mir-927 microRNA precursor family: an 82-nucleotide RNA sequence from Zootermopsis nevadensis.
The family has 16 seed sequences and 174 matches in Rfam 15.1.
A search with the family's covariance model found it, with a score of 64 bits.
Gene Ontology terms of the family: miRNA-mediated post-transcriptional gene silencing and RISC complex.

RNA sequence: UCAGUGCGGUUUGUCUUAGAAUUCCUAUGCUUUACCGAUUAAUUCAAUAGGCAAAGCGUUUGAAUUCUGAAACGAACUGUGU
Dot-bracket structure: .........(((((.(((((.(((..(((((((.((.............)).)))))))..))).))))).)))))......
Numbered sequence: 001u002c003a004g005u006g007c008g009g010u011u012u013g014u015c016u017u018a019g020a021a022u023u024c025c026u027a028u029g030c031u032u033u034a035c036c037g038a039u040u041a042a043u044u045c046a047a048u049a050g051g052c053a054a055a056g057c058g059u060u061u062g063a064a065u066u067c068u069g070a071a072a073c074g075a076a077c078u079g080u081g082u
Stems, first nucleotide, its partner, number of pairs: 010076005016070005022064003027059007035051002